[Rfam]
RNA sequence: UGCUUCUUUUCUUUGGUUAUCUAGCUGUAUGAGUGAUGAGUUCGCCCAAAGUGUCAUAAAGCUAGGUUACCAAAGUUAAAAACAA
Numbered sequence: 001u002g003c004u005u006c007u008u009u010u011c012u013u014u015g016g017u018u019a020u021c022u023a024g025c026u027g028u029a030u031g032a033g034u035g036a037u038g039a040g041u042u043c044g045c046c047c048a049a050a051g052u053g054u055c056a057u058a059a060a061g062c063u064a065g066g067u068u069a070c071c072a073a074a075g076u077u078a079a080a081a082a083c084a085a
Base pairs, nucleotide, nucleotide: 001085004082005081007079008078011075012074013073014072015071016070017069019067020066021065022064023063024062025061026060028058029057030056031055032054

Shown here is an 85-nucleotide RNA sequence from Varroa destructor, a member of the family "mir-9/mir-79 microRNA precursor family". The family has 214 seed sequences and 5,647 matches in Rfam 15.1. Its family is annotated with miRNA-mediated post-transcriptional gene silencing and RISC complex in the Gene Ontology. The base pairs follow the family's consensus structure, which was predicted with RNAalifold. A reference for the family is Sempere et al. (2003), "Temporal regulation of microRNA expression in Drosophila melanogaster mediated by hormonal signals and broad-Complex gene activity", Dev Biol. The match comes from Rfam's covariance-model search (69 bits).